[Rfam]
The record is a 103-nucleotide RNA from Yersinia ruckeri, which matches "Tryptophan operon leader" in Rfam.
The family's RNA type in Rfam is cis-regulatory leader.
A reference for the family is Kolter and Yanofsky (1982), "Attenuation in amino acid biosynthetic operons", Annu Rev Genet.
From the family's description: At least 6 amino acid operons are known to be regulated by attenuation.
The organism belongs to Yersinia, within Bacteria.
RNA sequence: CUUAGCUGGUGGCAUAGCUCCCUCUCUCGGGCGGUGUAAUCACGCAUACCAGUCAUCAGACCAUGCAGAUUGCUUCAGCCCGCUCACCAGCGGGCUUUUUUAU
Numbered sequence: 001c002u003u004a005g006c007u008g009g010u011g012g013c014a015u016a017g018c019u020c021c022c023u024c025u026c027u028c029g030g031g032c033g034g035u036g037u038a039a040u041c042a043c044g045c046a047u048a049c050c051a052g053u054c055a056u057c058a059g060a061c062c063a064u065g066c067a068g069a070u071u072g073c074u075u076c077a078g079c080c081c082g083c084u085c086a087c088c089a090g091c092g093g094g095c096u097u098u099u100u101u102a103u
Base pairs, nucleotide, nucleotide: 009043010042011041012040014037015036016035018033020031021030022029077096078095079094080093081092082091083090084089